The family of this 64-nucleotide sequence from Photobacterium gaetbulicola is "Fluoride riboswitch aptamer (crcB RNA motif)". The base pairs follow the family's consensus structure, which is taken from published work. On this family, see Baker et al., Science 2012: "Widespread genetic switches and toxicity resistance proteins for fluoride". Lineage of the source: Bacteria > Pseudomonadati > Vibrionales > Vibrionaceae > Photobacterium gaetbulicola.

[Rfam]
RNA sequence: GGGAUGACGGGUGAUGGAGUUCCACCUUUAACCGCUCAACCGAGAUAAUGACUCCUGCUGUAGU
Numbered sequence: 001g002g003g004a005u006g007a008c009g010g011g012u013g014a015u016g017g018a019g020u021u022c023c024a025c026c027u028u029u030a031a032c033c034g035c036u037c038a039a040c041c042g043a044g045a046u047a048a049u050g051a052c053u054c055c056u057g058c059u060g061u062a063g064u
Stems, first nucleotide, its partner, number of pairs: 010026004016055006035044003